[Rfam]
Nucleotides: 133
Base pairs, nucleotide, nucleotide: 003062004061007059017044018043019042020041021040072126073125074124075123084113086111087110088108089107090106093103094102
Number, partner (000 for none) and nucleotide at each position: 001000a002000a003062a004061c005000u006000c007059a008000a009000u010000c011000a012000a013000u014000g015000a016000a017044u018043c019042u020041g021040c022000u023000u024000a025000c026000c027000u028000g029000a030000a031000u032000g033000u034000g035000u036000u037000u038000c039000u040021g041020c042019a043018g044017a045000a046000a047000u048000u049000u050000g051000g052000a053000a054000a055000a056000u057000g058000c059007u060000u061004g062003u063000a064000a065000g066000a067000g068000g069000a070000a071000a072126g073125c074124c075123a076000u077000g078000u079000c080000a081000u082000g083000a084113g085000c086111c087110u088108u089107a090106a091000a092000a093103a094102u095000a096000c097000u098000a099000a100000a101000a102094g103093u104000c105000a106090u107089u108088a109000a110087a111086g112000a113084u114000c115000c116000u117000u118000g119000a120000a121000a122000a123075u124074g125073g126072c127000u128000a129000u130000g131000a132000c133000a